RNA sequence: UUUACCGUGAGGUAAAAUCUGAAGGAAACCGAAGGCAAAGCGCUGAUCCGACGAACAGGAAUCGCAUACGAGGCGGUCAUGCUGGAUGAGGAGGCGACUAUCUCUAAAGUCCGAAACCUGUACGGAGAGCAUGGACGUAUAUGCGGCGGAUAUAAGCGUGAAGGUGCGUGUG
Numbered sequence: 001u002u003u004a005c006c007g008u009g010a011g012g013u014a015a016a017a018u019c020u021g022a023a024g025g026a027a028a029c030c031g032a033a034g035g036c037a038a039a040g041c042g043c044u045g046a047u048c049c050g051a052c053g054a055a056c057a058g059g060a061a062u063c064g065c066a067u068a069c070g071a072g073g074c075g076g077u078c079a080u081g082c083u084g085g086a087u088g089a090g091g092a093g094g095c096g097a098c099u100a101u102c103u104c105u106a107a108a109g110u111c112c113g114a115a116a117c118c119u120g121u122a123c124g125g126a127g128a129g130c131a132u133g134g135a136c137g138u139a140u141a142u143g144c145g146g147c148g149g150a151u152a153u154a155a156g157c158g159u160g161a162a163g164g165u166g167c168g169u170g171u172g
Stems, first nucleotide, its partner, number of pairs: 001016006030170002035165002040159005046151005062146006073138003077134006084112004090105004
Shown here is a 172-nucleotide sequence from Magnetococcus marinus, a member of the family "Group II catalytic intron D1-D4-3".
The pairing is the family consensus, mapped onto this sequence.
Taxonomically the source falls in Magnetococcus marinus (Bacteria, Pseudomonadota, Magnetococcales, Magnetococcaceae).
Rfam's curators write: Group II introns are found in rRNA, tRNA and mRNA of organelles in fungi, plants and protists, and also in mRNA in bacteria.